[Rfam]
RNA sequence: UAAGAGUCGCAUAACUGGCGGAAGUGGAGUUCACCACAGGGAGUGCGAUUUGUAAAUAAGAAUACCGACCGCCUGGGUAAAUAUC
Numbered sequence: 001u002a003a004g005a006g007u008c009g010c011a012u013a014a015c016u017g018g019c020g021g022a023a024g025u026g027g028a029g030u031u032c033a034c035c036a037c038a039g040g041g042a043g044u045g046c047g048a049u050u051u052g053u054a055a056a057u058a059a060g061a062a063u064a065c066c067g068a069c070c071g072c073c074u075g076g077g078u079a080a081a082u083a084u085c
Stems, first nucleotide, its partner, number of pairs: 004051009015040002017073005024037004063079004
RNA: ZMP/ZTP riboswitch aptamer (pfl RNA motif)